Shown here is a 130-nucleotide sequence from Tetracentron sinense, a member of the family "mir-172 microRNA precursor family". Pairs were carried over by alignment from the consensus structure, which was predicted with PFOLD. Taxonomically the source falls in Tetracentron (Eukaryota, Tracheophyta, Spermatophyta, Trochodendrales). Rfam describes the family as follows. mir-172 has been experimentally verified in Arabidopsis thaliana. This family is thought to target mRNAs coding for APETALA2-like transcription factors. The mature sequence is excised from the 3' arm of the hairpin. It scores 84 bits against the family's covariance model.
RNA sequence: UUGUUUGCGGAUGUGGCAUCAUCAAGAUUCACAAACUUUAGGUGCUUCGUGGGGUGGUGGUGGUCCUCCUUCCCCACUCUUGAAAGGCUCUUCAAUAUGAGAAUCUUGAUGAUGCUGCAUCGGCCAUAAA
Numbered sequence: 001u002u003g004u005u006u007g008c009g010g011a012u013g014u015g016g017c018a019u020c021a022u023c024a025a026g027a028u029u030c031a032c033a034a035a036c037u038u039u040a041g042g043u044g045c046u047u048c049g050u051g052g053g054g055u056g057g058u059g060g061u062g063g064u065c066c067u068c069c070u071u072c073c074c075c076a077c078u079c080u081u082g083a084a085a086g087g088c089u090c091u092u093c094a095a096u097a098u099g100a101g102a103a104u105c106u107u108g109a110u111g112a113u114g115c116u117g118c119a120u121c122g123g124c125c126a127u128a129a130a
Stems, first nucleotide, its partner, number of pairs: 010121021032099002